[Rfam]
Nucleotides: 162
Base pairs, nucleotide, nucleotide: 001160002159003158004157005156006155007154008153010151011150012149013148014147016145017144019142020141021140022139023138025136026135027134029132031130032129033128034127035126036125037124038123039122040121041120042119043118044117046115048113049112050111051110052109054107055106056105057104058103070087071086072085073084074083
Number, partner (000 for none) and nucleotide at each position: 001160c002159c003158g004157u005156u006155a007154a008153g009000c010151g011150a012149u013148g014147a015000g016145g017144u018000a019142a020141c021140a022139a023138a024000c025136g026135g027134a028000a029132u030000a031130u032129c033128a034127u035126g036125u037124c038123a039122u040121u041120a042119c043118a044117c045000c046115u047000u048113g049112u050111c051110a052109c053000g054107g055106a056105c057104a058103c059000c060000u061000c062000a063000u064000u065000g066000u067000c068000a069000a070087g071086u072085c073084a074083u075000c076000a077000c078000a079000u080000u081000c082000a083074a084073u085072g086071a087070u088000g089000u090000g091000g092000c093000a094000g095000g096000c097000a098000c099000u100000g101000g102000c103058g104057u105056g106055u107054c108000a109052g110051u111050g112049a113048u114000u115046g116000a117044g118043u119042g120041u121040g122039a123038u124037g125036a126035u127034g128033u129032g130031a131000c132029a133000c134027u135026c136025u137000a138023u139022u140021u141020g142019u143000c144017a145016c146000g147014u148013c149012a150011u151010c152000a153008u154007u155006u156005a157004a158003c159002g160001g161000a162000a